[Rfam]
RNA sequence: UAUUCGAAAAGGCAUACUUAUUGAAAGAUAAGGUCGCAAAACCACAGAUCUAAGGGAUUCAUAUCCUAGGGUAGCUGGGUUACCGAA
Numbered sequence: 001u002a003u004u005c006g007a008a009a010a011g012g013c014a015u016a017c018u019u020a021u022u023g024a025a026a027g028a029u030a031a032g033g034u035c036g037c038a039a040a041a042c043c044a045c046a047g048a049u050c051u052a053a054g055g056g057a058u059u060c061a062u063a064u065c066c067u068a069g070g071g072u073a074g075c076u077g078g079g080u081u082a083c084c085g086a087a
Stems, first nucleotide, its partner, number of pairs: 012037002017032006040081004045077003048072003055066004
This 87-nucleotide RNA sequence from Paenibacillus psychroresistens belongs to the Rfam family "c-di-GMP-I riboswitch aptamer". The organism belongs to Paenibacillus, within Bacteria. Pairs were carried over by alignment from the consensus structure, which is taken from published work.